[Rfam]
A member of the RNA family "Small nucleolar RNA U3" from Daphnia pulex, 222 nucleotides long. The literature on the family includes a 2010 paper in RNA Biol by Marz and Stadler, "Comparative analysis of eukaryotic U3 snoRNA". Pairs were carried over by alignment from the consensus structure, which is taken from published work. It scores 103 bits against the family's covariance model. Rfam links the family to the GO terms RNA processing and nucleolus. NCBI's taxonomy places the organism under Eukaryota, Opisthokonta, Ecdysozoa, Anomopoda, Daphnia. Small nucleolar RNAs (snoRNAs) are involved in the processing and modification of rRNA in the nucleolus. There are two main classes of snoRNAs: the box C/D class, and the box H/ACA class. U3 snoRNA is a member of the box C/D class. Indeed, the box C/D element is a subset of the six short sequence elements found in all U3 snoRNAs, namely boxes A, A', B, C, C', and D. The U3 snoRNA secondary structure is characterised by a small 5' domain (with boxes A and A'), and a larger 3' domain (with boxes B, C, C', and D), the two domains being linked by a single-stranded hinge.
RNA sequence: GAGAUCAUACUUCACAGGAUCAUUUCUGUAGUAUAUCUUGACUUGUUUCCCACCAGAAACUUGUCUCCUUUCAACCCACGAUGACGAGUUAAGACACUGGUAUCUGAGCGUGAAACAAGCUGUGAGUGUAGCUAUCUCGACAGUAUCAAACACAGUCAUUGAGGAUCGUUUCCGUGAAAUUCAUGUGAAAUAGCGGAAGGAAACUAGCGUGUUCAGAGUGGU
Numbered sequence: 001g002a003g004a005u006c007a008u009a010c011u012u013c014a015c016a017g018g019a020u021c022a023u024u025u026c027u028g029u030a031g032u033a034u035a036u037c038u039u040g041a042c043u044u045g046u047u048u049c050c051c052a053c054c055a056g057a058a059a060c061u062u063g064u065c066u067c068c069u070u071u072c073a074a075c076c077c078a079c080g081a082u083g084a085c086g087a088g089u090u091a092a093g094a095c096a097c098u099g100g101u102a103u104c105u106g107a108g109c110g111u112g113a114a115a116c117a118a119g120c121u122g123u124g125a126g127u128g129u130a131g132c133u134a135u136c137u138c139g140a141c142a143g144u145a146u147c148a149a150a151c152a153c154a155g156u157c158a159u160u161g162a163g164g165a166u167c168g169u170u171u172c173c174g175u176g177a178a179a180u181u182c183a184u185g186u187g188a189a190a191u192a193g194c195g196g197a198a199g200g201a202a203a204c205u206a207g208c209g210u211g212u213u214c215a216g217a218g219u220g221g222u
Base pairs, nucleotide, nucleotide: 001039002038003037004036005035007034008033009032010031011030015028016027017026018025019024045060046059047058048057049056076221077220078219079218094210095209097207098206099205100204101203103201104200105199108169109168110167119156120155121154124151172196173195175192176191180188181187